[Rfam]
The record is a 77-nucleotide RNA sequence from Nothobranchius furzeri, which matches "mir-92 microRNA precursor family" in Rfam. A search with the family's covariance model found it, with a score of 61 bits. Pairs were carried over by alignment from the consensus structure, which was predicted with PFOLD. Its Rfam clan is "mir-92 microRNA precursor clan". Rfam 15.1 lists 1,347 matches to the family in 653 species.
RNA sequence: UGUCUAGUGCAGGUGGGGAUUUGUAGCAAUGCUGUGGUCCUGGAGGUAUUGCACUUGUCCCGGCCUGUACAGGAACA
Numbered sequence: 001u002g003u004c005u006a007g008u009g010c011a012g013g014u015g016g017g018g019a020u021u022u023g024u025a026g027c028a029a030u031g032c033u034g035u036g037g038u039c040c041u042g043g044a045g046g047u048a049u050u051g052c053a054c055u056u057g058u059c060c061c062g063g064c065c066u067g068u069a070c071a072g073g074a075a076c077a
Base pairs, nucleotide, nucleotide: 004073005072009068010067011066012065013064014063016061017060018059019058020057023054024053026052027051028050029049030048031047032046033045